RNA: SAM riboswitch aptamer (S box leader)
RNA sequence: GAUUUAUAAAGAAGAGGCGAGAGAAUGGGCUCAACGAACCUCUGGCAACCUGCUACCACAUCGGAGAAAGGUGCUAAUUCCCACCUAAGUUAUUAGGAGAUAUAAACU
Numbered sequence: 001g002a003u004u005u006a007u008a009a010a011g012a013a014g015a016g017g018c019g020a021g022a023g024a025a026u027g028g029g030c031u032c033a034a035c036g037a038a039c040c041u042c043u044g045g046c047a048a049c050c051u052g053c054u055a056c057c058a059c060a061u062c063g064g065a066g067a068a069a070g071g072u073g074c075u076a077a078u079u080c081c082c083a084c085c086u087a088a089g090u091u092a093u094u095a096g097g098a099g100a101u102a103u104a105a106a107c108u
Stems, first nucleotide, its partner, number of pairs: 001108001003106006013043005021032003026083004044075004049071002053066002079100001084097005